RNA sequence: ACAAGUUGAAGGCUACAGUAAAAGUGUUCAUGGUAUAAACAUGUCAGAUUCCAAUGAACCUGCAAAUUCUGCU
Numbered sequence: 001a002c003a004a005g006u007u008g009a010a011g012g013c014u015a016c017a018g019u020a021a022a023a024g025u026g027u028u029c030a031u032g033g034u035a036u037a038a039a040c041a042u043g044u045c046a047g048a049u050u051c052c053a054a055u056g057a058a059c060c061u062g063c064a065a066a067u068u069c070u071g072c073u
Stems, first nucleotide, its partner, number of pairs: 011040001014037001017073004022068002024036003045062003049058003

A member of the RNA family "Mammalian CPEB3 ribozyme" from Alligator mississippiensis, 73 nucleotides long.